[Rfam]
RNA: Plastid-psbM 3UTR RNA
RNA sequence: GAUAGAUAGUAUGGUAGAAAGAAAGAUUCAUCUAUUUAUUUCUACCAUACUAUUUAUUAGUUAGAUUGUAGUUAUAAAGCUGCCCCC
Numbered sequence: 001g002a003u004a005g006a007u008a009g010u011a012u013g014g015u016a017g018a019a020a021g022a023a024a025g026a027u028u029c030a031u032c033u034a035u036u037u038a039u040u041u042c043u044a045c046c047a048u049a050c051u052a053u054u055u056a057u058u059a060g061u062u063a064g065a066u067u068g069u070a071g072u073u074a075u076a077a078a079g080c081u082g083c084c085c086c087c
Stems, first nucleotide, its partner, number of pairs: 005054016022037003